[Rfam]
RNA sequence: GCUGUGGUUAUGAUGGCAAUGUACCAAAUUCUUUGGGAAGUACAUUGCCUGAUGUUUGCAUC
Numbered sequence: 001g002c003u004g005u006g007g008u009u010a011u012g013a014u015g016g017c018a019a020u021g022u023a024c025c026a027a028a029u030u031c032u033u034u035g036g037g038a039a040g041u042a043c044a045u046u047g048c049c050u051g052a053u054g055u056u057u058g059c060a061u062c
Base pairs, nucleotide, nucleotide: 001062003060004059005058015049016048017047018046019045020044021043022042023041024040029039030038031037

A member of the RNA family "Selenocysteine insertion sequence 1" from Chrysemys picta, 62 nucleotides long. Taxonomically the source falls in Chrysemys picta (Eukaryota, Craniata, Amniota, Archelosauria). It is annotated as a cis-regulatory element. A reference for the family is Walczak et al. (1996), "A novel RNA structural motif in the selenocysteine insertion element of eukaryotic selenoprotein mRNAs", RNA. About the family: The incorporation of selenocysteine into a protein sequence is directed by an in-frame UGA codon (usually a stop codon) within the coding region of the mRNA. Selenoprotein mRNAs contain a conserved secondary structure in the 3' UTR that is required for the distinction of UGA stop from UGA selenocysteine. The selenocysteine insertion sequence (SECIS) is around 60 nt in length and adopts a hairpin structure which is sufficiently well-defined and conserved to act as a computational screen for selenoprotein genes.